[Rfam]
RNA sequence: AGAUCGGCAGGGACUUUUGGUGCAAAGGUCCUUUGUCAAAGGUCGAAGGAGAGCGGCGUCAGACCUUGAACGAUCA
Number, nucleotide and partner (000 for none) at each position: 001a000002g075003a074004u073005c072006g071007g000008c000009a032010g031011g030012g029013a000014c000015u000016u000017u000018u000019g000020g000021u000022g000023c000024a000025a000026a000027g000028g000029u012030c011031c010032u009033u000034u000035g000036u000037c068038a067039a000040a066041g065042g064043u063044c062045g000046a000047a000048g000049g000050a000051g000052a000053g000054c000055g000056g000057c000058g000059u000060c000061a000062g044063a043064c042065c041066u040067u038068g037069a000070a000071c006072g005073a004074u003075c002076a000

The record is a 76-nucleotide RNA from Pedosphaera parvula, which matches "CyVA-1 RNA" in Rfam. Cyanobacteria, Acidobacteria (1 example), Verrucomicrobia (1 example). The sequence is in the family's curated seed alignment. The source organism's lineage runs through Bacteria, Pseudomonadati, Pedosphaerales, Pedosphaera and Pedosphaera parvula.